RNA: PhotoRC-II RNA
Organism: Ormenosvirus syn9
RNA sequence: UUUUGUUACCGCCCCUGCCGCUUGACCGAGACUAGGCAGGGUUACCAAUCCGUCUCUCAUAUCCUGCCUUAAGGGUGGCAGGAAAUAGUAACUCCA
Numbered sequence: 001u002u003u004u005g006u007u008a009c010c011g012c013c014c015c016u017g018c019c020g021c022u023u024g025a026c027c028g029a030g031a032c033u034a035g036g037c038a039g040g041g042u043u044a045c046c047a048a049u050c051c052g053u054c055u056c057u058c059a060u061a062u063c064c065u066g067c068c069u070u071a072a073g074g075g076u077g078g079c080a081g082g083a084a085a086u087a088g089u090a091a092c093u094c095c096a
Base pairs, nucleotide, nucleotide: 014040015039016038017037018036021035022034028056029055030054031053032052062083063082064081065080066079067078068077